[Rfam]
RNA sequence: AAGGUGGACGAAGAAGAUGUGGUCUCGCACAUCCUCGCCGGGCUGGAGGAGGAGUUCGAUCCCGUGGUGUCUGCCAUGUGCUCACGGGUCGAACCUGUGACUGUCCCGGAGCUGUACUCACAACUUUUGAGCUUCGAGA
Numbered sequence: 001a002a003g004g005u006g007g008a009c010g011a012a013g014a015a016g017a018u019g020u021g022g023u024c025u026c027g028c029a030c031a032u033c034c035u036c037g038c039c040g041g042g043c044u045g046g047a048g049g050a051g052g053a054g055u056u057c058g059a060u061c062c063c064g065u066g067g068u069g070u071c072u073g074c075c076a077u078g079u080g081c082u083c084a085c086g087g088g089u090c091g092a093a094c095c096u097g098u099g100a101c102u103g104u105c106c107c108g109g110a111g112c113u114g115u116a117c118u119c120a121c122a123a124c125u126u127u128u129g130a131g132c133u134u135c136g137a138g139a
Base pairs, nucleotide, nucleotide: 005137007135008134085108086107087106088105090103

Small nucleolar RNA Z247: a 139-nucleotide sequence from Triticum urartu. A search with the family's covariance model found it, with a score of 48 bits. Rfam classes the family as a C/D-box small nucleolar RNA. The literature on the family includes a 2003 paper in Nucleic Acids Res by Chen et al., "The high diversity of snoRNAs in plants: identification and comparative study of 120 snoRNA genes from Oryza sativa".